The family of this 102-nucleotide RNA sequence from Haploplasma axanthum is "Purine riboswitch aptamer". Taxonomically the source falls in Haploplasma (Bacteria, Bacillati, Mollicutes, Acholeplasmataceae). Its family is annotated with purine nucleobase biosynthetic process in the Gene Ontology.

[Rfam]
RNA sequence: AGAUGUGUAUUUAAUAUGAAUCGUAUAAUUAGUCUAAUAUGGUGACUAAGUUUCUACAGCGCUACCGUAAAUUGCGCGGCUACGGUUGACAUGGCUUUUUUU
Numbered sequence: 001a002g003a004u005g006u007g008u009a010u011u012u013a014a015u016a017u018g019a020a021u022c023g024u025a026u027a028a029u030u031a032g033u034c035u036a037a038u039a040u041g042g043u044g045a046c047u048a049a050g051u052u053u054c055u056a057c058a059g060c061g062c063u064a065c066c067g068u069a070a071a072u073u074g075c076g077c078g079g080c081u082a083c084g085g086u087u088g089a090c091a092u093g094g095c096u097u098u099u100u101u102u
Base pairs, nucleotide, nucleotide: 019087020086021085022084023083024082025081029049030048031047032046033045034044059077060076061075062074064072
The family's consensus secondary structure is taken from published work.